[Rfam]
RNA sequence: UUGAUUGUAUAUACUUGAACUUGUAUAAUCUCAAUAAUAUGGUUUGAGAGUCUCUACCGGAUGCCGUAAAAAUCCUGAUUACAAGAAAAAUGUGAACUCAC
Dot-bracket structure: ...................((((((...((((((.........))))))........(((((.........)))).)..))))))................

Overview:
Rfam assigns this 101-nucleotide RNA sequence from Paenibacillus sp. IHBB 10380 to the family "Purine riboswitch aptamer". Gene Ontology term of the family: purine nucleobase biosynthetic process. A reference for the family is Mandal et al. (2003), "Riboswitches Control Fundamental Biochemical Pathways in Bacillus subtilis and Other Bacteria", Cell.